This 84-nucleotide RNA sequence from Clarias magur belongs to the Rfam family "mir-221 microRNA precursor family".
The family's consensus secondary structure was predicted with RNAalifold.
It scores 72 bits against the family's covariance model.
Rfam links the family to the GO terms RISC complex and miRNA-mediated post-transcriptional gene silencing.

Nucleotides: 084
Base pairs, nucleotide, nucleotide: 013068014067015066016065017064018063020061021060022059023058024057025056026055027054028053033052034051035050036049
Number, partner (000 for none) and nucleotide at each position: 001000a002000u003000g004000g005000u006000u007000u008000u009000g010000u011000a012000c013068c014067u015066g016065g017064c018063a019000u020061g021060c022059a023058g024057u025056g026055u027054a028053g029000a030000u031000a032000u033052c034051u035050g036049u037000g038000u039000u040000a041000a042000u043000u044000a045000a046000c047000c048000u049036a050035c051034a052033g053028c054027u055026a056025c057024a058023u059022u060021g061020u062000c063018u064017g065016c066015u067014g068013g069000g070000u071000u072000u073000c074000a075000g076000a077000u078000c079000c080000a081000u082000c083000u084000u